[Rfam]
RNA sequence: ACGUCGGAAAGGAGGUGAUCGGGUACAUGAGUGAAACCCGGACGCGCGAGGUGGCUGCGGGCUAGCGGCCUGCCACCACACCCAGUGCGGUGCCGGACCGGCGUGGGCAAGCGACACGCAGCCGGCCAAUCCAACGCAGUCACCCGACCCGCGGGCUCGCCGGUACGUCCGGCCGGCUCCUCCGCCAUCCGGCGCAGGACCUGAGCCCGCGGGUCGUCUGCG
Numbered sequence: 001a002c003g004u005c006g007g008a009a010a011g012g013a014g015g016u017g018a019u020c021g022g023g024u025a026c027a028u029g030a031g032u033g034a035a036a037c038c039c040g041g042a043c044g045c046g047c048g049a050g051g052u053g054g055c056u057g058c059g060g061g062c063u064a065g066c067g068g069c070c071u072g073c074c075a076c077c078a079c080a081c082c083c084a085g086u087g088c089g090g091u092g093c094c095g096g097a098c099c100g101g102c103g104u105g106g107g108c109a110a111g112c113g114a115c116a117c118g119c120a121g122c123c124g125g126c127c128a129a130u131c132c133a134a135c136g137c138a139g140u141c142a143c144c145c146g147a148c149c150c151g152c153g154g155g156c157u158c159g160c161c162g163g164u165a166c167g168u169c170c171g172g173c174c175g176g177c178u179c180c181u182c183c184g185c186c187a188u189c190c191g192g193c194g195c196a197g198g199a200c201c202u203g204a205g206c207c208c209g210c211g212g213g214u215c216g217u218c219u220g221c222g
Stems, first nucleotide, its partner, number of pairs: 015058003019054001060127004065122002068119002071116001145216013159177006

Notes:
This 222-nucleotide sequence from Streptomyces shenzhenensis belongs to the Rfam family "Actinobacteria sRNA Ms_IGR-5". It is annotated as a small RNA.